[Rfam]
RNA sequence: CGAGUUAGGGGUACAAGUCCUGCAGAAUUGCGUUCCUCUGGACCUAAGCAACGACCUGAAAGGGUAGCGACGACACUCGGCGUUAGAGGGGAGAGUACUGGACGCAGUGUUCCCUCUGACG
Numbered sequence: 001c002g003a004g005u006u007a008g009g010g011g012u013a014c015a016a017g018u019c020c021u022g023c024a025g026a027a028u029u030g031c032g033u034u035c036c037u038c039u040g041g042a043c044c045u046a047a048g049c050a051a052c053g054a055c056c057u058g059a060a061a062g063g064g065u066a067g068c069g070a071c072g073a074c075a076c077u078c079g080g081c082g083u084u085a086g087a088g089g090g091g092a093g094a095g096u097a098c099u100g101g102a103c104g105c106a107g108u109g110u111u112c113c114c115u116c117u118g119a120c121g
Stems, first nucleotide, its partner, number of pairs: 001079005006073001008071001009045004014040002021032004048068002056064002082120011098107003
Overview
This 121-nucleotide RNA belongs to the Rfam family "Flavobacterium-1 RNA". It is annotated as a small RNA.